[Rfam]
RNA: ROOL RNA
Organism: Coprobacillus sp. D7
RNA sequence: ACGCUUUUGUUUUAGAUAUUGCAUCAUGGUGAAUAAAGCGAAUGCCAUCGCUCCAUGAACUUGAUGGGAACUCAUAGACAAUUUAUGGGAUACUGUAGAUUGGAUGUGUUUUAUGAUUGGUGACAAUCAUAAUGAAGAUUCUAAAUGGAAUCAAAAGAAGUCAUGUUGCAUCACUAGUAUGAAUGUAAAAACAGUGAACUUAUCGCGGUGAUAAUAGACGCUCCAGUGGAGAAUAACCCGUGGACCCCUUUUCGUAGCUGAAAUUGAAACAAUUCGGGAAUGCUAAAGCAAACCGUUUGUCGUGAAACUGUAGAAAUAUAGUUAUAAGAUAAGUAGCACGUACAUAGCUCAAAAGACAGUUUUUGAUAACUUAGAUAUAAAGUUGUAUAUUAUUCUAAAUGCUGAAUGGUGAGUAAAUGUUGCGGGUAUCAAUCCCGUCCAGUCUAGUUCGUAAGAAUUGGUGAAAUGCAUAAAGGUAGCUCCUCUAUGUACAGCUUCAUCAAACUGGUUGUUGAAAAUACAUGUUUAUUAGUUGAGUAAGUAGAAAUACUGCAAUAUCAUGUCGUCAUAG
Numbered sequence: 001a002c003g004c005u006u007u008u009g010u011u012u013u014a015g016a017u018a019u020u021g022c023a024u025c026a027u028g029g030u031g032a033a034u035a036a037a038g039c040g041a042a043u044g045c046c047a048u049c050g051c052u053c054c055a056u057g058a059a060c061u062u063g064a065u066g067g068g069a070a071c072u073c074a075u076a077g078a079c080a081a082u083u084u085a086u087g088g089g090a091u092a093c094u095g096u097a098g099a100u101u102g103g104a105u106g107u108g109u110u111u112u113a114u115g116a117u118u119g120g121u122g123a124c125a126a127u128c129a130u131a132a133u134g135a136a137g138a139u140u141c142u143a144a145a146u147g148g149a150a151u152c153a154a155a156a157g158a159a160g161u162c163a164u165g166u167u168g169c170a171u172c173a174c175u176a177g178u179a180u181g182a183a184u185g186u187a188a189a190a191a192c193a194g195u196g197a198a199c200u201u202a203u204c205g206c207g208g209u210g211a212u213a214a215u216a217g218a219c220g221c222u223c224c225a226g227u228g229g230a231g232a233a234u235a236a237c238c239c240g241u242g243g244a245c246c247c248c249u250u251u252u253c254g255u256a257g258c259u260g261a262a263a264u265u266g267a268a269a270c271a272a273u274u275c276g277g278g279a280a281u282g283c284u285a286a287a288g289c290a291a292a293c294c295g296u297u298u299g300u301c302g303u304g305a306a307a308c309u310g311u312a313g314a315a316a317u318a319u320a321g322u323u324a325u326a327a328g329a330u331a332a333g334u335a336g337c338a339c340g341u342a343c344a345u346a347g348c349u350c351a352a353a354a355g356a357c358a359g360u361u362u363u364u365g366a367u368a369a370c371u372u373a374g375a376u377a378u379a380a381a382g383u384u385g386u387a388u389a390u391u392a393u394u395c396u397a398a399a400u401g402c403u404g405a406a407u408g409g410u411g412a413g414u415a416a417a418u419g420u421u422g423c424g425g426g427u428a429u430c431a432a433u434c435c436c437g438u439c440c441a442g443u444c445u446a447g448u449u450c451g452u453a454a455g456a457a458u459u460g461g462u463g464a465a466a467u468g469c470a471u472a473a474a475g476g477u478a479g480c481u482c483c484u485c486u487a488u489g490u491a492c493a494g495c496u497u498c499a500u501c502a503a504a505c506u507g508g509u510u511g512u513u514g515a516a517a518a519u520a521c522a523u524g525u526u527u528a529u530u531a532g533u534u535g536a537g538u539a540a541g542u543a544g545a546a547a548u549a550c551u552g553c554a555a556u557a558u559c560a561u562g563u564c565g566u567c568a569u570a571g
Stems, first nucleotide, its partner, number of pairs: 007568001009566002013562002020555001025057005037052005060165001062163004073108004080101009109134001111132009137152005171552001175532001177530001190519001191513001194339003198334007205296005221231004237278004242273001246266001250263003255285004297359005307322005343419001347414005401495004425436002440507003443457001448456002458504002461501001465497001470488003474484003540551004